[Rfam]
SucA RNA motif: an 85-nucleotide sequence. The literature on the family includes a 2007 paper in Nucleic Acids Res by Weinberg et al., "Identification of 22 candidate structured RNAs in bacteria using the CMfinder comparative genomics pipeline". A search with the family's covariance model found it, with a score of 47 bits. Gene Ontology term of the family: regulation of translation. The family's consensus secondary structure is taken from published work.
RNA sequence: UUGCUAUCCGCUGAACGGGAAGUCCGUGUCGCGGAAGGUUUUAUCCCCUGCAUCGUGUCGGCGAAAUGCUCGAAAAGGUGAAGCG
Number, nucleotide and partner (000 for none) at each position: 001u000002u085003g084004c083005u000006a000007u035008c034009c033010g032011c031012u000013g000014a000015a000016c026017g025018g024019g023020a000021a000022g000023u019024c018025c017026g016027u000028g000029u000030c000031g011032c010033g009034g008035a007036a000037g046038g045039u000040u000041u000042u000043a000044u000045c038046c037047c000048c000049u000050g000051c080052a079053u078054c077055g000056u000057g000058u073059c072060g070061g069062c068063g067064a000065a000066a000067u063068g062069c061070u060071c000072g059073a058074a000075a000076a000077g054078g053079u052080g051081a000082a000083g004084c003085g002